[Rfam]
RNA sequence: ACCUUAUCAUGAGCGGUGGAGGGACUGGCCCUGAGAAACCCGGCAACCCUGUUCGAAAGAACAGAUGGUGCUAAAUCCUGCAGAAGAUUACUCUGAAAGAUAAGGG
Numbered sequence: 001a002c003c004u005u006a007u008c009a010u011g012a013g014c015g016g017u018g019g020a021g022g023g024a025c026u027g028g029c030c031c032u033g034a035g036a037a038a039c040c041c042g043g044c045a046a047c048c049c050u051g052u053u054c055g056a057a058a059g060a061a062c063a064g065a066u067g068g069u070g071c072u073a074a075a076u077c078c079u080g081c082a083g084a085a086g087a088u089u090a091c092u093c094u095g096a097a098a099g100a101u102a103a104g105g106g
Stems, first nucleotide, its partner, number of pairs: 002105007013041001015040003021031003025080001027078002042072004047068002049064004076098001081095004

SAM riboswitch aptamer (S box leader): a 106-nucleotide RNA from Peribacillus deserti.
The base pairs follow the family's consensus structure, which is taken from published work.
NCBI's taxonomy places the organism under Bacteria, Bacillota, Caryophanales, Bacillaceae, Peribacillus.
The match comes from Rfam's covariance-model search (88 bits).